A member of the RNA family "Eukaryotic small subunit ribosomal RNA" from Pythium oligandrum, 165 nucleotides of a longer RNA. The source organism's lineage runs through Eukaryota, Stramenopiles, Oomycota, Pythiaceae and Pythium.
[Rfam]
RNA sequence: CCGCCCGUCGCACCUACCGAUUGAAUGACUCGGUGAGAAAUCGGGACCGUGAAUCUGUUUGCUUCAUUGCGAGUGGAUUUAUGGGAACUUUUUCUAACCUCGCCAUUUAGAGGAAGGUGAAGUCGUAACAAGGUUUCCGUAGGUGAACCUGCGGAAGGAUCAUUA
Numbered sequence: 001c002c003g004c005c006c007g008u009c010g011c012a013c014c015u016a017c018c019g020a021u022u023g024a025a026u027g028a029c030u031c032g033g034u035g036a037g038a039a040a041u042c043g044g045g046a047c048c049g050u051g052a053a054u055c056u057g058u059u060u061g062c063u064u065c066a067u068u069g070c071g072a073g074u075g076g077a078u079u080u081a082u083g084g085g086a087a088c089u090u091u092u093u094c095u096a097a098c099c100u101c102g103c104c105a106u107u108u109a110g111a112g113g114a115a116g117g118u119g120a121a122g123u124c125g126u127a128a129c130a131a132g133g134u135u136u137c138c139g140u141a142g143g144u145g146a147a148c149c150u151g152c153g154g155a156a157g158g159a160u161c162a163u164u165a
Stems, first nucleotide, its partner, number of pairs: 001132001003129001006125002009122001011119005017113002021109001023108005029102001032099003037094004043088001047084011059072004134157010

Pairs were carried over by alignment from the consensus structure, which is taken from published work.